[Rfam]
RNA sequence: AAUUUAUAAAUGACGAAAAUGUCGUAAACCAUCUGUGGGGGACAUUUUUUGACAAAUAAAUU
Numbered sequence: 001a002a003u004u005u006a007u008a009a010a011u012g013a014c015g016a017a018a019a020u021g022u023c024g025u026a027a028a029c030c031a032u033c034u035g036u037g038g039g040g041g042a043c044a045u046u047u048u049u050u051g052a053c054a055a056a057u058a059a060a061u062u
Base pairs, nucleotide, nucleotide: 001062002061003060004059005058015049016048017047018046019045020044021043022042023041029038030037031036

A member of the RNA family "Selenocysteine insertion sequence 1" from Plasmodium knowlesi, 62 nucleotides long. Pairs were carried over by alignment from the consensus structure, which is taken from published work. It is annotated as a cis-regulatory element. Rfam links the family to the GO term selenocysteine incorporation.